[Rfam]
RNA sequence: ACAACAACAACAAAAACCAGUACCCAAAACAAGAACAACAGACACGACUCCAGACCAACAAGAACAAGAACGACGGAGGCGCAGCUAACUGAUUUUUUUGGAGAGGACACGCAACCGGGGCAACCCGCUUCAGCUCAGCAACAACAAGACUGCAUAGAAGCAGCUGACGAGCCGAAGAGAUCACGGACCGAUCAUUGCACCAUCAGCUUCCAAAGCAAUCCGUUCGCUCUUGGUUUUCAUCAUGGAAACCGCAAGAAAAGCCGGGAAGACAAUAAAAACAAGAUUCCCGUCAUAACAAUAAGAACAGAGCAGGCAACUCAAUUGGUUGCGGGGAGGCGAAAUGCCUCCCCGCCAACUUCCCCCUCCGACACCACCCGCACCU
Numbered sequence: 001a002c003a004a005c006a007a008c009a010a011c012a013a014a015a016a017c018c019a020g021u022a023c024c025c026a027a028a029a030c031a032a033g034a035a036c037a038a039c040a041g042a043c044a045c046g047a048c049u050c051c052a053g054a055c056c057a058a059c060a061a062g063a064a065c066a067a068g069a070a071c072g073a074c075g076g077a078g079g080c081g082c083a084g085c086u087a088a089c090u091g092a093u094u095u096u097u098u099u100g101g102a103g104a105g106g107a108c109a110c111g112c113a114a115c116c117g118g119g120g121c122a123a124c125c126c127g128c129u130u131c132a133g134c135u136c137a138g139c140a141a142c143a144a145c146a147a148g149a150c151u152g153c154a155u156a157g158a159a160g161c162a163g164c165u166g167a168c169g170a171g172c173c174g175a176a177g178a179g180a181u182c183a184c185g186g187a188c189c190g191a192u193c194a195u196u197g198c199a200c201c202a203u204c205a206g207c208u209u210c211c212a213a214a215g216c217a218a219u220c221c222g223u224u225c226g227c228u229c230u231u232g233g234u235u236u237u238c239a240u241c242a243u244g245g246a247a248a249c250c251g252c253a254a255g256a257a258a259a260g261c262c263g264g265g266a267a268g269a270c271a272a273u274a275a276a277a278a279c280a281a282g283a284u285u286c287c288c289g290u291c292a293u294a295a296c297a298a299u300a301a302g303a304a305c306a307g308a309g310c311a312g313g314c315a316a317c318u319c320a321a322u323u324g325g326u327u328g329c330g331g332g333g334a335g336g337c338g339a340a341a342u343g344c345c346u347c348c349c350c351g352c353c354a355a356c357u358u359c360c361c362c363c364u365c366c367g368a369c370a371c372c373a374c375c376c377g378c379a380c381c382u
Stems, first nucleotide, its partner, number of pairs: 045081002048078004096215005111207002128177004133172001150163004233249005263288004307358003328353001329351008

The record is a 382-nucleotide sequence from Pseudomonas mangrovi, which matches "Pseudomonas sRNA CrcZ" in Rfam. NCBI's taxonomy places the organism under Bacteria, Pseudomonadati, Pseudomonadota, Gammaproteobacteria, Pseudomonas. Rfam 15.1 lists 127 matches to the family in 96 species. Gene Ontology term of the family: carbon catabolite repression of transcription. The base pairs follow the family's consensus structure, which was predicted with WAR.